[Rfam]
A member of the RNA family "Fluoride riboswitch aptamer (crcB RNA motif)" from Chthonomonas calidirosea, 85 nucleotides long. It scores 39 bits against the family's covariance model. Pairs were carried over by alignment from the consensus structure, which is taken from published work.

RNA sequence: UUGAACCUUGGCGAUGGAGGCCGCCAGGGCGCUUGUUUUUGCUGCCCAAACCGCUCUCUUUUGAGCUGAUGGCUCCUAGCUCACA
Numbered sequence: 001u002u003g004a005a006c007c008u009u010g011g012c013g014a015u016g017g018a019g020g021c022c023g024c025c026a027g028g029g030c031g032c033u034u035g036u037u038u039u040u041g042c043u044g045c046c047c048a049a050a051c052c053g054c055u056c057u058c059u060u061u062u063g064a065g066c067u068g069a070u071g072g073c074u075c076c077u078a079g080c081u082c083a084c085a
Base pairs, nucleotide, nucleotide: 010025011024012023013022016076017075018074019073021071053066054065055064056063